[Rfam]
RNA sequence: UUUCAGCAUCAAGAGUCGGGCCGACGCCUGACACCAACCUGCUCCCGGGCAAGGUGGUGCCUCCAUAUUGGAGGGAUGUGGCCAGACCGGCAACAAACGGGAUGAAA
Numbered sequence: 001u002u003u004c005a006g007c008a009u010c011a012a013g014a015g016u017c018g019g020g021c022c023g024a025c026g027c028c029u030g031a032c033a034c035c036a037a038c039c040u041g042c043u044c045c046c047g048g049g050c051a052a053g054g055u056g057g058u059g060c061c062u063c064c065a066u067a068u069u070g071g072a073g074g075g076a077u078g079u080g081g082c083c084a085g086a087c088c089g090g091c092a093a094c095a096a097a098c099g100g101g102a103u104g105a106a107a
Stems, first nucleotide, its partner, number of pairs: 006079005015032001017030005033058003038054003041050003081091003